[Rfam]
This 127-nucleotide RNA sequence from Leptobrachium leishanense belongs to the Rfam family "Small nucleolar RNA SNORA65".
It is annotated as an H/ACA-box small nucleolar RNA.
The family has 14 seed sequences and 1,089 matches in Rfam 15.1.
The literature on the family includes a 2001 paper in EMBO J by Huttenhofer et al., "RNomics: an experimental approach that identifies 201 candidates for novel, small, non-messenger RNAs in mouse".
Gene Ontology terms of the family: nucleolus and RNA processing.
The source organism's lineage runs through Eukaryota, Sarcopterygii, Pelobatoidea, Megophryidae and Leptobrachium.
Rfam's curators write: U65 belongs to the H/ACA class of snoRNAs which are thought to guide the sites of modification of uridines to pseudouridines.
RNA sequence: CCCGCCACUAUAGCAGCCUGACCCGUGACUGUGUAUAAUCCAGUGGUGCGCUGAGACCAAAUCCCGUUCUAGGAAACAGGUUCAGUCUACGUGUGAGUGAUCCUGUGCCGAAAGACUGGGGACAAAC
Numbered sequence: 001c002c003c004g005c006c007a008c009u010a011u012a013g014c015a016g017c018c019u020g021a022c023c024c025g026u027g028a029c030u031g032u033g034u035a036u037a038a039u040c041c042a043g044u045g046g047u048g049c050g051c052u053g054a055g056a057c058c059a060a061a062u063c064c065c066g067u068u069c070u071a072g073g074a075a076a077c078a079g080g081u082u083c084a085g086u087c088u089a090c091g092u093g094u095g096a097g098u099g100a101u102c103c104u105g106u107g108c109c110g111a112a113a114g115a116c117u118g119g120g121g122a123c124a125a126a127c
Base pairs, nucleotide, nucleotide: 005046006045007044008043009042018033020030022027063120064119065118066117067115068114070112072109073108077105078104079103080102082100086096087095
Dot-bracket structure: ....(((((........(.(.(....)..)..)........)))))................((((((.(.((...((((.(...((.......))...).))))..))..).)).)))).......